[Rfam]
RNA sequence: AAAUUAACAGGAUUAGACCUUCAUAUAUGUUUGGGAAUAUGGCCCAAACGUUUCUACCUGAACACCAAUAUGUUCAGACUAUGAAGGCGAGGGUCUGUCGU
Number, nucleotide and partner (000 for none) at each position: 001a000002a000003a000004u000005u000006a000007a000008c000009a000010g000011g000012a000013u000014u000015a000016g000017a000018c087019c086020u085021u084022c083023a082024u081025a080026u000027a000028u000029g049030u048031u047032u046033g045034g044035g043036a000037a000038u000039a000040u000041g000042g000043c035044c034045c033046a032047a031048a030049c029050g000051u000052u000053u000054c000055u000056a000057c000058c077059u076060g075061a074062a073063c072064a071065c000066c000067a000068a000069u000070a000071u064072g063073u062074u061075c060076a059077g058078a000079c000080u025081a024082u023083g022084a021085a020086g019087g018088c000089g000090a000091g000092g000093g000094u000095c000096u000097g000098u000099c000100g000101u000
Rfam assigns this 101-nucleotide sequence from Gracilibacillus dipsosauri to the family "Purine riboswitch aptamer". Taxonomically the source falls in Gracilibacillus (Bacteria, Bacillati, Bacilli, Caryophanales). The match comes from Rfam's covariance-model search (79 bits). Rfam links the family to the GO term purine nucleobase biosynthetic process.